[Rfam]
RNA sequence: GGACGAUGACGACAACUUGAAAGGUCUCGUUCGACUGAUAGGCCAUAUCGGCCAUGUUGACCAUUCAAAAAAGAUCACCACCCAUAAUCUGAUGUCC
Numbered sequence: 001g002g003a004c005g006a007u008g009a010c011g012a013c014a015a016c017u018u019g020a021a022a023g024g025u026c027u028c029g030u031u032c033g034a035c036u037g038a039u040a041g042g043c044c045a046u047a048u049c050g051g052c053c054a055u056g057u058u059g060a061c062c063a064u065u066c067a068a069a070a071a072a073g074a075u076c077a078c079c080a081c082c083c084a085u086a087a088u089c090u091g092a093u094g095u096c097c
Stems, first nucleotide, its partner, number of pairs: 001097004045055002